[Rfam]
RNA sequence: AUAUGACACGGUCCGACGGUGGCCAGUUUGGCCCCAACCUUCGGCCGUGGCGCAAUGAC
Number, nucleotide and partner (000 for none) at each position: 001a000002u000003a000004u000005g000006a000007c049008a048009c047010g046011g045012u044013c043014c000015g042016a041017c000018g035019g034020u000021g033022g032023c031024c030025a029026g000027u000028u000029u025030g024031g023032c022033c021034c019035c018036a000037a000038c000039c000040u000041u016042c015043g013044g012045c011046c010047g009048u008049g007050g000051c000052g000053c000054a000055a000056u000057g000058a000059c000